RNA sequence: GGAACGGGCCUUUCAGGCAUCCUCUCCUAAGACUUCAGGGUCGGCCUCGUGCCGGCCCUUUUUUUUGUCUCAC
Numbered sequence: 001g002g003a004a005c006g007g008g009c010c011u012u013u014c015a016g017g018c019a020u021c022c023u024c025u026c027c028u029a030a031g032a033c034u035u036c037a038g039g040g041u042c043g044g045c046c047u048c049g050u051g052c053c054g055g056c057c058c059u060u061u062u063u064u065u066u067g068u069c070u071c072a073c
Base pairs, nucleotide, nucleotide: 008018009017010016011015038058039057040056041055042054043053044052045051